[Rfam]
RNA sequence: CUGCAAGUUCAAGGCCAUAGCACAAGUGCUCACAGUGCAGCCUGUCAGAUUCCAAUGAAUGUGCAAAUUCUGCU
Numbered sequence: 001c002u003g004c005a006a007g008u009u010c011a012a013g014g015c016c017a018u019a020g021c022a023c024a025a026g027u028g029c030u031c032a033c034a035g036u037g038c039a040g041c042c043u044g045u046c047a048g049a050u051u052c053c054a055a056u057g058a059a060u061g062u063g064c065a066a067a068u069u070c071u072g073c074u
Base pairs, nucleotide, nucleotide: 013042014041015040019074020073021072022071024069025068026038027037028036046063047062049060050059051058052057
A member of the RNA family "Mammalian CPEB3 ribozyme" from Alligator sinensis, 74 nucleotides long. Lineage of the source: Eukaryota > Deuterostomia > Chordata > Alligatorinae > Alligator. From the family's description: The mammalian CPEB3 ribozyme is a self cleaving RNA located in the second intron of the CPEB3 gene which belongs to a family of genes regulating messenger RNA polyadenylation. This ribozyme is highly conserved and found only in mammals. The CPEB3 ribozyme is structurally and biochemically related to the human hepatitis delta virus (HDV) ribozyme and the HDV ribozyme is proposed to have arisen from the human transcriptome. There is currently only one other known self cleaving ribozyme in mammals, the CoTC motif. Rfam 15.1 lists 5,706 matches to the family in 197 species. The base pairs follow the family's consensus structure, which is taken from published work. A search with the family's covariance model found it, with a score of 41 bits.